Rfam assigns this 118-nucleotide RNA sequence from Sporomusa acidovorans to the family "Molybdenum/Tungsten riboswitch aptamer (Moco RNA motif)". The organism belongs to Sporomusa acidovorans, within Bacteria.
[Rfam]
RNA sequence: UUUAUUCGCCUGCUCCUUAGCCGCUUUACCUAAGCCAUGUGGUAUGGUAUCCGGCCGAUCGGUAUAGUUGGAAACGACUAUAUUUCCCGUUUUGGAAAGGAGCAAUACUUCAAGUAGU
Numbered sequence: 001u002u003u004a005u006u007c008g009c010c011u012g013c014u015c016c017u018u019a020g021c022c023g024c025u026u027u028a029c030c031u032a033a034g035c036c037a038u039g040u041g042g043u044a045u046g047g048u049a050u051c052c053g054g055c056c057g058a059u060c061g062g063u064a065u066a067g068u069u070g071g072a073a074a075c076g077a078c079u080a081u082a083u084u085u086c087c088c089g090u091u092u093u094g095g096a097a098a099g100g101a102g103c104a105a106u107a108c109u110u111c112a113a114g115u116a117g118u
Stems, first nucleotide, its partner, number of pairs: 003112001011104006020055004026049001028048003034043003061084010086095002